[Rfam]
The family of this 45-nucleotide RNA from Podarcis muralis is "Histone 3' UTR stem-loop".
Rfam classes the family as a cis-regulatory element.
About the family: The mRNAs of metazoan histone genes lack a poly-A tail. 3' end processing occurs at a site between a highly conserved stem-loop (modelled by this family) and a purine rich region around 20 nts downstream (the histone downstream element, or HDE). The stem-loop is bound by a 31 kDa stem-loop binding protein (SLBP - also termed the histone hairpin binding protein, or HBP).
The source organism's lineage runs through Eukaryota, Opisthokonta, Lepidosauria, Episquamata and Podarcis.
Pairs were carried over by alignment from the consensus structure, which is taken from published work.
RNA sequence: CAAACGGCUCUUUUAAGAGCCACCCACAAUUUCUGCGAAAGACUG
Numbered sequence: 001c002a003a004a005c006g007g008c009u010c011u012u013u014u015a016a017g018a019g020c021c022a023c024c025c026a027c028a029a030u031u032u033c034u035g036c037g038a039a040a041g042a043c044u045g
Stems, first nucleotide, its partner, number of pairs: 006021006